[Rfam]
Shown here is a 93-nucleotide sequence from Cajanus cajan, a member of the family "MIR319 microRNA precursor family". Rfam links the family to the GO terms RISC complex and miRNA-mediated post-transcriptional gene silencing.
RNA sequence: CAGAAAAGGGAGUUCCCUUGCAGCCCAAAAUACCCUGCAUGCACUGCAUGAAUUUCAUGCAGUGUUUUGGACUGAAGGGAGCUCCUUGUUCUU
Numbered sequence: 001c002a003g004a005a006a007a008g009g010g011a012g013u014u015c016c017c018u019u020g021c022a023g024c025c026c027a028a029a030a031u032a033c034c035c036u037g038c039a040u041g042c043a044c045u046g047c048a049u050g051a052a053u054u055u056c057a058u059g060c061a062g063u064g065u066u067u068u069g070g071a072c073u074g075a076a077g078g079g080a081g082c083u084c085c086u087u088g089u090u091c092u093u
Base pairs, nucleotide, nucleotide: 007087008086009085010084011083012082013081014080015079016078017077018076022073023072025070026069027068028067029066
Dot-bracket structure: ......((((((((((((...((.(((((....................................))))).))..))))))))))))......